A member of the RNA family "Betaproteobacteria transfer-messenger RNA" from Candidatus Accumulibacter regalis, 306 nucleotides long. The base pairs follow the family's consensus structure, which is taken from published work. Rfam classes the family as a non-coding RNA gene.
RNA sequence: CCGGUCAUGGGACCUUGUAUUCCAGCUGCGCUGCACCCAUAAUGCUUUCCAUGGUCGUAAUUCCGGCAAACCGGAAGCGUUCUGGACGCGGGUUCGAUUCCCGCCACCUCCACCACUGCGGGGGUGCACCGGUUUCGACAGGGUGACAGAUGGCGAGCAGGCGGCCCGAGAGGCGACGGACGUAAUCCGCGCAAAACCACAAACGCCAAUGAUGAGCGUUUCGCAAUGGCCGCUUAAGGCCUGCUGAGGACAUAGCCGUCCAAUAAACAGAAUGGCUAUCGGUGGGGGCUUCGGCCCCCAUCGUCA
Numbered sequence: 001c002c003g004g005u006c007a008u009g010g011g012a013c014c015u016u017g018u019a020u021u022c023c024a025g026c027u028g029c030g031c032u033g034c035a036c037c038c039a040u041a042a043u044g045c046u047u048u049c050c051a052u053g054g055u056c057g058u059a060a061u062u063c064c065g066g067c068a069a070a071c072c073g074g075a076a077g078c079g080u081u082c083u084g085g086a087c088g089c090g091g092g093u094u095c096g097a098u099u100c101c102c103g104c105c106a107c108c109u110c111c112a113c114c115a116c117u118g119c120g121g122g123g124g125u126g127c128a129c130c131g132g133u134u135u136c137g138a139c140a141g142g143g144u145g146a147c148a149g150a151u152g153g154c155g156a157g158c159a160g161g162c163g164g165c166c167c168g169a170g171a172g173g174c175g176a177c178g179g180a181c182g183u184a185a186u187c188c189g190c191g192c193a194a195a196a197c198c199a200c201a202a203a204c205g206c207c208a209a210u211g212a213u214g215a216g217c218g219u220u221u222c223g224c225a226a227u228g229g230c231c232g233c234u235u236a237a238g239g240c241c242u243g244c245u246g247a248g249g250a251c252a253u254a255g256c257c258g259u260c261c262a263a264u265a266a267a268c269a270g271a272a273u274g275g276c277u278a279u280c281g282g283u284g285g286g287g288g289c290u291u292c293g294g295c296c297c298c299c300a301u302c303g304u305c306a
Stems, first nucleotide, its partner, number of pairs: 053166005063161002066158002071152001078145007088104005105126007167182002248261003252279006282301008
Dot-bracket structure: ....................................................(((((.....((.((...(......(((((((...(((((.......)))))(((((((........)))))))............)))))))......)....)).)))))))((............)).................................................................[[[.((((((.]]]............))))))..((((((((....)))))))).....

The organism belongs to Candidatus Accumulibacter, within Bacteria.